[Rfam]
RNA: Alphaproteobacteria transfer-messenger RNA
RNA sequence: GGGCUUUUCACGGCGCGGCGGAGCGCCUAUAUUCCGCUCGCCGGGGCAACCCGGCUAUGGCGAUAAACGGCCGGUGUAAUAAACCUUUCGGACCCGGGGGCGGUACCCGGCGCCUCCACCUGAACCCUUCGUUGGAAGGGCUGAGGCGGGGGCGAAAUAGGAUCGACGAGGGUGUAAAGAUCGUUCUUUCGCUCGGCAUGGUACCACCGUCAUCGGGCUGUAAAAAUAGUUGCCAACGACAACUAUGCGGAAGCCCGUCUCGCCGCGUAAAGCGGUGCGAUAGCUUCAAAUUAAGCCCUGGGGGUUCGCACUCCUAGGCGGGGCCCGGAGGCGCCUGGCAACAGAAGCCUCCACC
Dot-bracket structure: .......................................(((((......)))))...(((((.....((.((((........(((.(((...(((((.......)))))(((((((..............................)))))))............)))))).......)))).))..)))))[[[..(((..((.]]].....)).)))....................................................................................................[[[[..((((((]]]]..........))))))...